[Rfam]
RNA sequence: CUUAACGUUUGUUUACAUGAAUUAACGUGAAAACUAAUGAUCGAUUUAAUGAGCAGCAUUAUUAUUUAUUUCACGUUAUGAGCAAUCCCCAAAGUUCAUAACAUUUCUCCUUAACCGAAUUUGUCUGUACAAAUUCGUUGUUCUACGCAAUGAUCACCCCAAUCAUUGCGUAUUUUUUUGAGUGUGAAAUCAUA
Numbered sequence: 001c002u003u004a005a006c007g008u009u010u011g012u013u014u015a016c017a018u019g020a021a022u023u024a025a026c027g028u029g030a031a032a033a034c035u036a037a038u039g040a041u042c043g044a045u046u047u048a049a050u051g052a053g054c055a056g057c058a059u060u061a062u063u064a065u066u067u068a069u070u071u072c073a074c075g076u077u078a079u080g081a082g083c084a085a086u087c088c089c090c091a092a093a094g095u096u097c098a099u100a101a102c103a104u105u106u107c108u109c110c111u112u113a114a115c116c117g118a119a120u121u122u123g124u125c126u127g128u129a130c131a132a133a134u135u136c137g138u139u140g141u142u143c144u145a146c147g148c149a150a151u152g153a154u155c156a157c158c159c160c161a162a163u164c165a166u167u168g169c170g171u172a173u174u175u176u177u178u179u180g181a182g183u184g185u186g187a188a189a190u191c192a193u194a
Base pairs, nucleotide, nucleotide: 013053014052018048019047020046021045022044023043026039027038028037065194067192069189070188071187072186073185074184075183076182077100078099080097082095083094086093116137117136118135119134121132122131123130124129145171146170147169148168149167150166151165152164153163154162
RNA: Aar sRNA